Description: Rfam assigns this 87-nucleotide sequence from Cnephaeus nilssonii to the family "mir-9195 microRNA precursor family". NCBI's taxonomy places the organism under Eukaryota, Metazoa, Eumetazoa, Boreoeutheria, Cnephaeus.

[Rfam]
RNA sequence: AGAGGCUCUCUGCGGCCGGGGUGGAAUGCUUGCUUCGUCACCGCAGCGAUGAAGCAAGCAUUCCACCAGGUCGCUCAUGCUGCCAGC
Numbered sequence: 001a002g003a004g005g006c007u008c009u010c011u012g013c014g015g016c017c018g019g020g021g022u023g024g025a026a027u028g029c030u031u032g033c034u035u036c037g038u039c040a041c042c043g044c045a046g047c048g049a050u051g052a053a054g055c056a057a058g059c060a061u062u063c064c065a066c067c068a069g070g071u072c073g074c075u076c077a078u079g080c081u082g083c084c085a086g087c
Stems, first nucleotide, its partner, number of pairs: 004084003012074006020067014037050003041046001

The match comes from Rfam's covariance-model search (97 bits).